[Rfam]
RNA: THF (Tetrahydrofolate) riboswitch aptamer
Organism: Lachnospiraceae bacterium TWA4
RNA sequence: GGCAAAGUAGAAUGACAUGCGGUAGUGUCUUUGGAACGGGGAGAUGUCCAAAGAACGAAUUGCUCACAAAUCUUUUAUGUGAGAUGGCGGUAUGUUAUUCGCAUCCCGUUGCU
Numbered sequence: 001g002g003c004a005a006a007g008u009a010g011a012a013u014g015a016c017a018u019g020c021g022g023u024a025g026u027g028u029c030u031u032u033g034g035a036a037c038g039g040g041g042a043g044a045u046g047u048c049c050a051a052a053g054a055a056c057g058a059a060u061u062g063c064u065c066a067c068a069a070a071u072c073u074u075u076u077a078u079g080u081g082a083g084a085u086g087g088c089g090g091u092a093u094g095u096u097a098u099u100c101g102c103a104u105c106c107c108g109u110u111g112c113u
Stems, first nucleotide, its partner, number of pairs: 001113005010100010020089002025056002028054008039106003043102001060086001